[Rfam]
RNA sequence: GUGGUGCCGGUUCACGGUGUGGCGGUCAGGACCCAUCGACCCGGCACC
Numbered sequence: 001g002u003g004g005u006g007c008c009g010g011u012u013c014a015c016g017g018u019g020u021g022g023c024g025g026u027c028a029g030g031a032c033c034c035a036u037c038g039a040c041c042c043g044g045c046a047c048c
Stems, first nucleotide, its partner, number of pairs: 003048003007044004015038005021032001
Rfam assigns this 48-nucleotide RNA sequence from Phytoactinopolyspora halophila to the family "L31-Actinobacteria ribosomal protein leader". NCBI's taxonomy places the organism under Bacteria, Actinomycetota, Actinomycetes, Jiangellales, Phytoactinopolyspora. Rfam classes the family as a cis-regulatory leader. A search with the family's covariance model found it, with a score of 36 bits. The family's consensus secondary structure is taken from published work.